[Rfam]
RNA sequence: AGCACUAUAUUUAAGCCGAUGGAUGGGAACUUUCCCCAUUCUUGGUUACGCUGUAGUGCAAAAGAAUUCCUGACUCUUUGAUGCAUAGCUGACUUGCACCAUUCUGCUGUUGCAUUAUGGAGUUAAGGAACAUAU
Dot-bracket structure: .((((((((....((((...(((((((.......)))))))..))))....)))))))).......(((((((((((.((..(((((((.((..........)).)))).)))..)).)))))).))))).....
RNA: Small nucleolar RNA SNORA46
Organism: Tupaia belangeri